[Rfam]
RNA sequence: UCGCGUCAAGCGCCGUAGGCAGGAGCGGGGGACCCAAGGUAAGUGCCGCGCCGGGCAGUUGACCGGAGCGGCUUGGGGUUAAGCCAUGCCUCCCACGGGAGGUGUGGCCGGGCAACUCAACCGGCCCGAACCCGACAGCUCACCUCGCAGGCGUCGGUGAGGGGAUCG
Numbered sequence: 001u002c003g004c005g006u007c008a009a010g011c012g013c014c015g016u017a018g019g020c021a022g023g024a025g026c027g028g029g030g031g032a033c034c035c036a037a038g039g040u041a042a043g044u045g046c047c048g049c050g051c052c053g054g055g056c057a058g059u060u061g062a063c064c065g066g067a068g069c070g071g072c073u074u075g076g077g078g079u080u081a082a083g084c085c086a087u088g089c090c091u092c093c094c095a096c097g098g099g100a101g102g103u104g105u106g107g108c109c110g111g112g113c114a115a116c117u118c119a120a121c122c123g124g125c126c127c128g129a130a131c132c133c134g135a136c137a138g139c140u141c142a143c144c145u146c147g148c149a150g151g152c153g154u155c156g157g158u159g160a161g162g163g164g165a166u167c168g
Stems, first nucleotide, its partner, number of pairs: 011153004025148006035075004076133003084107010110127004

This 168-nucleotide sequence from Streptomyces brasiliensis belongs to the Rfam family "c-di-AMP riboswitch aptamer (ydaO/yuaA leader)". The match comes from Rfam's covariance-model search (68 bits).